[Rfam]
RNA sequence: AUUUCAAUACAACUCUUGUUAUUGUUUAUC
Dot-bracket structure: ........((((...))))...........